Rfam assigns this 306-nucleotide sequence from Corymbia citriodora to the family "Plant signal recognition particle RNA". It is annotated as a non-coding RNA gene. Rfam links the family to the GO terms SRP-dependent cotranslational protein targeting to membrane, signal sequence recognition and signal recognition particle, endoplasmic reticulum targeting. Taxonomically the source falls in Corymbia citriodora (Eukaryota, Mesangiospermae, eudicotyledons, Corymbia). For this family Rfam cites "Towards the structure of the mammalian signal recognition particle" (Wild et al., Curr Opin Struct Biol, 2002).
RNA sequence: GCCGAGCUCAGUAGUGAGAGCUUGUAACCCGAGCGGGGGCAUCAAAGUGGUGGAACGUGGGCUCGGAUCCUUUGGGCCGGGUCUAGGGUGGCUAAUUGCUGGCCCGCCCGUUCCAAGCCGAGAGUUGGUCGAUGUGGUUUAGGCGAAGGCCCGGGCCAUGUGGAUCCUAGAGCGGAGGGCACCGCGUGAGGCUGGUUUCACAGAGCAGCGAAAUCCUCCCGCUCCCGGCGGUGGAAGGAUAACGGGUCAGUGCCACACAGCCCCGCCAUGGCUCAAUGGGCUGAGUCCGACUGGACCACCACCUUU
Numbered sequence: 001g002c003c004g005a006g007c008u009c010a011g012u013a014g015u016g017a018g019a020g021c022u023u024g025u026a027a028c029c030c031g032a033g034c035g036g037g038g039g040c041a042u043c044a045a046a047g048u049g050g051u052g053g054a055a056c057g058u059g060g061g062c063u064c065g066g067a068u069c070c071u072u073u074g075g076g077c078c079g080g081g082u083c084u085a086g087g088g089u090g091g092c093u094a095a096u097u098g099c100u101g102g103c104c105c106g107c108c109c110g111u112u113c114c115a116a117g118c119c120g121a122g123a124g125u126u127g128g129u130c131g132a133u134g135u136g137g138u139u140u141a142g143g144c145g146a147a148g149g150c151c152c153g154g155g156c157c158a159u160g161u162g163g164a165u166c167c168u169a170g171a172g173c174g175g176a177g178g179g180c181a182c183c184g185c186g187u188g189a190g191g192c193u194g195g196u197u198u199c200a201c202a203g204a205g206c207a208g209c210g211a212a213a214u215c216c217u218c219c220c221g222c223u224c225c226c227g228g229c230g231g232u233g234g235a236a237g238g239a240u241a242a243c244g245g246g247u248c249a250g251u252g253c254c255a256c257a258c259a260g261c262c263c264c265g266c267c268a269u270g271g272c273u274c275a276a277u278g279g280g281c282u283g284a285g286u287c288c289g290a291c292u293g294g295a296c297c298a299c300c301a302c303c304u305u306u
Base pairs, nucleotide, nucleotide: 001040002039003038004023005022006021007020008019009018028037029036030035044305045304047302048301049300050299051298052297053296056293057292058289059288060287062285063284064283065282066281069279070278072276073275074274075273076272077271078270079264080263081262083260084259087256089255090254091253093252094251099250100249101248102247103246104245105244106243108238109237111236112235113234114233115232117229118228119227120226122224123223124222125221127166128165129164130163132161133160134159135158136157137156138155139154140153142151143150144149167172174219175218176217177216178215179214185210186209187208192203193202194201
Dot-bracket structure: (((((((((........))))))....(((....))))))...((.(((((((..(((((.(((((..((.((((((((((.((..(.(((.((....((((((((.((.(((((.((((.((((.((((.(((((((((.(((....))).))))))))).))))(....).((((((.....(((....(((......)))....)))...)))))).)))).))))..)))))))....))))))))))))))..)).))).....))))))).)).))))).)))..))..))))))).)).